Source information
The record is a 121-nucleotide sequence from Cuscuta campestris, which matches "Small nucleolar RNA snoR109" in Rfam. Lineage of the source: Eukaryota > Tracheophyta > Euphyllophyta > Mesangiospermae > Cuscuta sect. Cleistogrammica. Gene Ontology terms of the family: RNA processing and nucleolus. It scores 48 bits against the family's covariance model. The base pairs follow the family's consensus structure, which was predicted with WAR. The literature on the family includes a 2002 paper in Curr Biol by Marker et al., "Experimental RNomics: identification of 140 candidates for small non-messenger RNAs in the plant Arabidopsis thaliana".
RNA sequence: UGGCUGUAGCCAUAUCAACAUGUUUUGUUUAUCCGAGUUUACUGGCCGGUUGUUUUUGUUGGGUUUCCUUAACAAGGAUCCCAACCGUGGACAAUAUCUGCUUACCGAACUCUGUACAUUA
Dot-bracket structure: ................................(.(((((....(((.((((((((.................................)))).).))).))).....))))).).......